[Rfam]
RNA sequence: AAUUAGCCCUGAUGGAAGGGAAAAUCCUUUUUGAACGCUUUUUCGGCGGGCAAAAAGAUUGGAAUGACAGCAGGACAACUG
Number, nucleotide and partner (000 for none) at each position: 001a000002a000003u000004u000005a000006g000007c000008c000009c073010u072011g071012a000013u069014g068015g000016a000017a000018g065019g000020g000021a000022a000023a060024a059025u058026c057027c000028u000029u055030u054031u053032u052033g051034a000035a000036c048037g047038c046039u000040u000041u000042u000043u000044c000045g000046g038047c037048g036049g000050g000051c033052a032053a031054a030055a029056a000057g026058a025059u024060u023061g000062g000063a000064a000065u018066g000067a000068c014069a013070g000071c011072a010073g009074g000075a000076c000077a000078a000079c000080u000081g000
RNA: Flavo-1 RNA